[Rfam]
RNA sequence: AACAGAAAGAAGGAGCUCCCCUUCAGUCCAAGCACAGAGAAAAGAGGGGUGCAAAAUAUCACCUGCUUCAUUCACACAAUUACACUAGCAAUUUGAAAGCACUACGUACUGUGUGUGUAUGAAUGAGUCAGCAGAUACUCCAGCAACCCUUUAAUCCCUUGAAUCCAUGCAUGGGCUGAAGGAAGCUCCUUCACUCUCUUUC
Numbered sequence: 001a002a003c004a005g006a007a008a009g010a011a012g013g014a015g016c017u018c019c020c021c022u023u024c025a026g027u028c029c030a031a032g033c034a035c036a037g038a039g040a041a042a043a044g045a046g047g048g049g050u051g052c053a054a055a056a057u058a059u060c061a062c063c064u065g066c067u068u069c070a071u072u073c074a075c076a077c078a079a080u081u082a083c084a085c086u087a088g089c090a091a092u093u094u095g096a097a098a099g100c101a102c103u104a105c106g107u108a109c110u111g112u113g114u115g116u117g118u119a120u121g122a123a124u125g126a127g128u129c130a131g132c133a134g135a136u137a138c139u140c141c142a143g144c145a146a147c148c149c150u151u152u153a154a155u156c157c158c159u160u161g162a163a164u165c166c167a168u169g170c171a172u173g174g175g176c177u178g179a180a181g182g183a184a185g186c187u188c189c190u191u192c193a194c195u196c197u198c199u200u201u202c
Stems, first nucleotide, its partner, number of pairs: 013188005020182002024178007037165001060134001063131003069125004077117001
A member of the RNA family "MIR159 microRNA precursor family" from Glycine max, 202 nucleotides long. Rfam 15.1 lists 3,649 matches to the family in 242 species. Taxonomically the source falls in Glycine subgen. Soja (Eukaryota, Euphyllophyta, Spermatophyta, eudicotyledons).